[Rfam]
mir-3660 microRNA precursor family: an 82-nucleotide sequence from Tupaia belangeri. NCBI's taxonomy places the organism under Eukaryota, Amniota, Euarchontoglires, Scandentia, Tupaia belangeri. The family has 4 seed sequences and 125 matches in Rfam 15.1. Pairs were carried over by alignment from the consensus structure, which was predicted with RNAalifold.
RNA sequence: ACUGGACAAAAUUAAAGUGCUCUUCUGUCACUGUACCCGUUCCUAUGAACACUGACAGGAGAGCAUUUCAAUUUUGUCAAGG
Number, nucleotide and partner (000 for none) at each position: 001a000002c081003u080004g000005g078006a077007c076008a075009a074010a073011a000012u071013u070014a000015a068016a067017g066018u065019g064020c063021u062022c061023u060024u059025c058026u057027g056028u055029c054030a053031c000032u051033g050034u049035a000036c000037c000038c000039g000040u000041u000042c000043c000044u000045a000046u000047g000048a000049a034050c033051a032052c000053u030054g029055a028056c027057a026058g025059g024060a023061g022062a021063g020064c019065a018066u017067u016068u015069c000070a013071a012072u000073u010074u009075u008076g007077u006078c005079a000080a003081g002082g000